About this RNA
This 62-nucleotide sequence from Marmota monax belongs to the Rfam family "Small nucleolar RNA Z39". Lineage of the source: Eukaryota > Eumetazoa > Dipnotetrapodomorpha > Theria > Marmota.
RNA sequence: UUGCGCAUGAUGAAGCAAAUCAGUAUGAAUAAGUUCAUGAUAUGUAAAAAUUCUCUGAUGUA
Numbered sequence: 001u002u003g004c005g006c007a008u009g010a011u012g013a014a015g016c017a018a019a020u021c022a023g024u025a026u027g028a029a030u031a032a033g034u035u036c037a038u039g040a041u042a043u044g045u046a047a048a049a050a051u052u053c054u055c056u057g058a059u060g061u062a
Stems, first nucleotide, its partner, number of pairs: 002062004012054001014052002021044002024042003
Dot-bracket structure: .((((......(.((.....((.(((.............)))))......)).)....))))

The family's RNA type in Rfam is C/D-box small nucleolar RNA.